[Rfam]
RNA sequence: GUUGAGGAGAUGGUGAUGUUGAUUACAAGCACAUAUCUUAAAAACAAAUGUGUAGAAAAACAGUUUCUGAAUCUCCUCCUU
Numbered sequence: 001g002u003u004g005a006g007g008a009g010a011u012g013g014u015g016a017u018g019u020u021g022a023u024u025a026c027a028a029g030c031a032c033a034u035a036u037c038u039u040a041a042a043a044a045c046a047a048a049u050g051u052g053u054a055g056a057a058a059a060a061c062a063g064u065u066u067c068u069g070a071a072u073c074u075c076c077u078c079c080u081u
Base pairs, nucleotide, nucleotide: 001081004078005077006076008074009073010072011071
This 81-nucleotide RNA from Pleuronectes platessa belongs to the Rfam family "Small nucleolar RNA SNORD121A". The family has 26 seed sequences and 881 matches in Rfam 15.1. It is annotated as a C/D-box small nucleolar RNA. The base pairs follow the family's consensus structure, which was predicted with WAR. For this family Rfam cites "snoSeeker: an advanced computational package for screening of guide and orphan snoRNA genes in the human genome" (Yang et al., Nucleic Acids Res, 2006).